[Rfam]
RNA sequence: AGUGAUGGUAGAGGCGCAAAAACCAUCAGUAAAGCUUUUGAAGAGAAUAAGCUCUACAGACAAAGCUUGAAAGGGGAAUUUGCCGAAGCGUAAAGGCGCUUAUUAGCCUGAAGCUGGACCUGCAUUGAAUAAGUGCAGGGCUGUCAUGCAUUUCCAUCCCGGGAUAUGUAUGGAGAACUAUCUCACAG
Numbered sequence: 001a002g003u004g005a006u007g008g009u010a011g012a013g014g015c016g017c018a019a020a021a022a023c024c025a026u027c028a029g030u031a032a033a034g035c036u037u038u039u040g041a042a043g044a045g046a047a048u049a050a051g052c053u054c055u056a057c058a059g060a061c062a063a064a065g066c067u068u069g070a071a072a073g074g075g076g077a078a079u080u081u082g083c084c085g086a087a088g089c090g091u092a093a094a095g096g097c098g099c100u101u102a103u104u105a106g107c108c109u110g111a112a113g114c115u116g117g118a119c120c121u122g123c124a125u126u127g128a129a130u131a132a133g134u135g136c137a138g139g140g141c142u143g144u145c146a147u148g149c150a151u152u153u154c155c156a157u158c159c160c161g162g163g164a165u166a167u168g169u170a171u172g173g174a175g176a177a178c179u180a181u182c183u184c185a186c187a188g
Base pairs, nucleotide, nucleotide: 007182008181009180010179011178016083017082018081019080020079023076024075032068033067034066035065036064037063038062087115088114089113091111094109095108096107097106116142117141119139120138121137122136123135124134125133126132144173145172146171147170148169149168150167